The family of this 118-nucleotide RNA from Pasteurella multocida is "Aggregatibacter sRNA 54". Pairs were carried over by alignment from the consensus structure, which was predicted with RNAfold. Rfam's curators write: Validated by RT-PCR, expression up-regulated during growth. Rfam classes the family as a small RNA. The sequence is in the family's curated seed alignment.
RNA sequence: GCGUAACAUUCGCCCCGAUUUAGUAAUAUGAGGACACACACUUUGGACAGUCACAGUCGAUACCGAAUUGAGUUUUUACUGUAACUUUCGCCAUUUCCUUAACAUCGGCGAGGGUUCG
Numbered sequence: 001g002c003g004u005a006a007c008a009u010u011c012g013c014c015c016c017g018a019u020u021u022a023g024u025a026a027u028a029u030g031a032g033g034a035c036a037c038a039c040a041c042u043u044u045g046g047a048c049a050g051u052c053a054c055a056g057u058c059g060a061u062a063c064c065g066a067a068u069u070g071a072g073u074u075u076u077u078a079c080u081g082u083a084a085c086u087u088u089c090g091c092c093a094u095u096u097c098c099u100u101a102a103c104a105u106c107g108g109c110g111a112g113g114g115u116u117c118g
Base pairs, nucleotide, nucleotide: 001013002012003011005010026082027081028080030077031076032075033074034073035072039070042067043066044065045064046063050061051060052059083116084115085114086113087112088111089110090109091108092107